[Rfam]
Shown here is a 76-nucleotide RNA sequence from Crocodylus porosus, a member of the family "Mammalian CPEB3 ribozyme". NCBI's taxonomy places the organism under Eukaryota, Deuterostomia, Vertebrata, Sauropsida, Crocodylus. A search with the family's covariance model found it, with a score of 40 bits.
RNA sequence: GGCUGCAAGUUUGAGGCUAUAGAAGAAGUGCUCACAGCGUGGCCUGCCAGAUUCUAAUGCAUCUGUAAGUUCUGCU
Numbered sequence: 001g002g003c004u005g006c007a008a009g010u011u012u013g014a015g016g017c018u019a020u021a022g023a024a025g026a027a028g029u030g031c032u033c034a035c036a037g038c039g040u041g042g043c044c045u046g047c048c049a050g051a052u053u054c055u056a057a058u059g060c061a062u063c064u065g066u067a068a069g070u071u072c073u074g075c076u
Stems, first nucleotide, its partner, number of pairs: 015044004021076002024073004028040003048065005054059001